[Rfam]
RNA sequence: GCCGGGGACCCAACCAUCCUGGGGUGAAUCCUGUGCGAGGCGCGGCCGCACGAGCGGCAGCGAGGAGCACGGGUAGGGCAAGUCGUGCCCGAACCCGUCAGCUCACCCGGU
Number, nucleotide and partner (000 for none) at each position: 001g111002c110003c109004g108005g107006g106007g000008a000009c000010c000011c021012a020013a000014c000015c000016a000017u000018c000019c000020u012021g011022g096023g095024g094025u000026g000027a000028a000029u000030c073031c072032u071033g070034u069035g068036c067037g000038a000039g000040g000041c000042g000043c000044g000045g000046c000047c000048g000049c000050a000051c000052g000053a000054g000055c000056g000057g000058c000059a000060g000061c000062g000063a000064g000065g000066a000067g036068c035069a034070c033071g032072g031073g030074u000075a000076g090077g089078g088079c087080a000081a000082g000083u000084c000085g000086u000087g079088c078089c077090c076091g000092a000093a000094c024095c023096c022097g000098u000099c000100a000101g000102c000103u000104c000105a000106c006107c005108c004109g003110g002111u001
A member of the RNA family "c-di-AMP riboswitch aptamer (ydaO/yuaA leader)" from Nocardioides silvaticus, 111 nucleotides long.